RNA sequence: ACACGAGAGAGGAGGUGGUCCGAGAAGUGAGUGGUCUCAGGACGCGUGAGGUGGCUGCCCGCUAGCCGCCCGAUCCCAUCGGACGACGCUGCCCCGCAGCAUCGUCCGGUCCGCCCGCCGAGGACGUCCUCGGCAGCAGGGCGAGCCGGCGAUGACCAGGCAGCCACCGCAGCCCCCGGGUGCCGUGCCCGUCCAGCACGGCGCGAGGUCCUCGACCUCGGCCCCGGGGGCUGUUCCCU
Numbered sequence: 001a002c003a004c005g006a007g008a009g010a011g012g013a014g015g016u017g018g019u020c021c022g023a024g025a026a027g028u029g030a031g032u033g034g035u036c037u038c039a040g041g042a043c044g045c046g047u048g049a050g051g052u053g054g055c056u057g058c059c060c061g062c063u064a065g066c067c068g069c070c071c072g073a074u075c076c077c078a079u080c081g082g083a084c085g086a087c088g089c090u091g092c093c094c095c096g097c098a099g100c101a102u103c104g105u106c107c108g109g110u111c112c113g114c115c116c117g118c119c120g121a122g123g124a125c126g127u128c129c130u131c132g133g134c135a136g137c138a139g140g141g142c143g144a145g146c147c148g149g150c151g152a153u154g155a156c157c158a159g160g161c162a163g164c165c166a167c168c169g170c171a172g173c174c175c176c177c178g179g180g181u182g183c184c185g186u187g188c189c190c191g192u193c194c195a196g197c198a199c200g201g202c203g204c205g206a207g208g209u210c211c212u213c214g215a216c217c218u219c220g221g222c223c224c225c226g227g228g229g230g231c232u233g234u235u236c237c238c239u
Stems, first nucleotide, its partner, number of pairs: 014059006060151004065146002068142004072137001170233011183201006
RNA: Actinobacteria sRNA Ms_IGR-5